[Rfam]
RNA sequence: UGGCUAUAAAAUAAUUUAUUCUGUAGCCACUUUAGAGUUACGAUAAUUACUAUGUUAAUUUACGAGAUUAUAGUAACUCCUUACUAAGUGGUUUACUAUAUAUUAUGGUAAAUGUCUCCAUAUGUUAUAGUAACCCAACUAUCGUAAAUUAUCGUAAAUUAGUAUAUAAAAUUAUCGUAAAUGAAGGUGGCUACAUAAUAACUUAUUUUAUAACUG
Numbered sequence: 001u002g003g004c005u006a007u008a009a010a011a012u013a014a015u016u017u018a019u020u021c022u023g024u025a026g027c028c029a030c031u032u033u034a035g036a037g038u039u040a041c042g043a044u045a046a047u048u049a050c051u052a053u054g055u056u057a058a059u060u061u062a063c064g065a066g067a068u069u070a071u072a073g074u075a076a077c078u079c080c081u082u083a084c085u086a087a088g089u090g091g092u093u094u095a096c097u098a099u100a101u102a103u104u105a106u107g108g109u110a111a112a113u114g115u116c117u118c119c120a121u122a123u124g125u126u127a128u129a130g131u132a133a134c135c136c137a138a139c140u141a142u143c144g145u146a147a148a149u150u151a152u153c154g155u156a157a158a159u160u161a162g163u164a165u166a167u168a169a170a171a172u173u174a175u176c177g178u179a180a181a182u183g184a185a186g187g188u189g190g191c192u193a194c195a196u197a198a199u200a201a202c203u204u205a206u207u208u209u210a211u212a213a214c215u216g
Stems, first nucleotide, its partner, number of pairs: 001216003005212010016201005022195012038180011051166013066153003070149001081147004088142006094132007101124003107117002

Notes: Rfam assigns this 216-nucleotide sequence from Miscanthus lutarioriparius to the family "MIR6217 microRNA precursor family". The family has 2 seed sequences and 2,266 matches in Rfam 15.1. Gene Ontology terms of the family: RISC complex and miRNA-mediated post-transcriptional gene silencing. NCBI's taxonomy places the organism under Eukaryota, Viridiplantae, Streptophytina, Andropogoneae, Miscanthus.